[Rfam]
Lysine riboswitch aptamer: a 177-nucleotide RNA from Cerasibacillus terrae. Rfam describes the family as follows. Riboswitches are metabolite binding domains within certain messenger RNAs that serve as precision sensors for their corresponding targets. Lineage of the source: Bacteria > Bacillati > Bacillota > Caryophanales > Cerasibacillus. A search with the family's covariance model found it, with a score of 113 bits.

Nucleotides: 177
Stems, first nucleotide, its partner, number of pairs: 007171005016079008032064002035061005083112003088106006113139002116136008141162007
Number, partner (000 for none) and nucleotide at each position: 001000c002000g003000g004000u005000g006000a007171g008170g009169u010168a011167g012000a013000g014000g015000c016079g017078c018077a019076a020075a021074u022073a023072a024000a025000a026000a027000g028000a029000g030000u031000a032064g033063u034000c035061u036060a037059u038058c039057g040000g041000a042000g043000g044000a045000u046000g047000a048000c049000a050000a051000c052000g053000a054000u055000g056000a057039u058038g059037a060036u061035a062000a063033a064032u065000g066000a067000a068000a069000g070000g071000a072023u073022u074021a075020u076019u077018u078017g079016c080000c081000g082000a083112a084111g085110c086000a087000a088106u089105a090104c091103a092102a093101g094000u095000g096000u097000c098000a099000g100000u101093c102092u103091u104090g105089u106088a107000g108000a109000a110085g111084c112083u113139g114138g115000g116136g117135u118134g119133u120132c121131u122130u123129u124000g125000a126000a127000g128000a129123a130122g131121a132120g133119g134118c135117a136116c137000a138114c139113u140000g141162u142161c143160a144159u145158g146157c147156a148000u149000c150000a151000c152000a153000u154000u155000a156147u157146g158145u159144a160143u161142g162141g163000a164000g165000g166000a167011c168010u169009a170008c171007u172000g173000a174000u175000c176000g177000a